[Rfam]
RNA sequence: GGUUGUCCUGAUUCGAUCGGGAUACUCAUCAAAUUACGUUGAAAACCGAGUAGCUUCUCUUGCCAAUGGCGGGCCACAUAAGCCUGCGAAAGCAGCCUAAGCCGUAAGGCCGGUGGAUUACAAAGACGGAGAGCGCUCACAACUUUUAUAGCUGGAGUUUUCAUCACAUCCUCAGGGCAACCCCUUUC
Numbered sequence: 001g002g003u004u005g006u007c008c009u010g011a012u013u014c015g016a017u018c019g020g021g022a023u024a025c026u027c028a029u030c031a032a033a034u035u036a037c038g039u040u041g042a043a044a045a046c047c048g049a050g051u052a053g054c055u056u057c058u059c060u061u062g063c064c065a066a067u068g069g070c071g072g073g074c075c076a077c078a079u080a081a082g083c084c085u086g087c088g089a090a091a092g093c094a095g096c097c098u099a100a101g102c103c104g105u106a107a108g109g110c111c112g113g114u115g116g117a118u119u120a121c122a123a124a125g126a127c128g129g130a131g132a133g134c135g136c137u138c139a140c141a142a143c144u145u146u147u148a149u150a151g152c153u154g155g156a157g158u159u160u161u162c163a164u165c166a167c168a169u170c171c172u173c174a175g176g177g178c179a180a181c182c183c184c185u186u187u188c
Stems, first nucleotide, its partner, number of pairs: 053134003057131002060129003064125001067122002074116004101110003
Rfam assigns this 188-nucleotide RNA sequence from Hallella multisaccharivorax to the family "Bacteroidales-1 6S-Bacteroidales RNA suggested". The family's RNA type in Rfam is small RNA. From the family's description: Bacteroidales-1 was first reported in a comparative genomics-based approach of genome and metagenome sequences from Weinberg et al. 2010 In a high-resolution transcriptome map study of Bacteroides thetaiotaomicron, Ryan et al. 2020 report this sRNA as 6S RNA homologue of Bacteroides, in the study they obtain evidence of small product RNAs (pRNAs) related to 6S function. The organism belongs to Hallella multisaccharivorax, within Bacteria. The match comes from Rfam's covariance-model search (112 bits).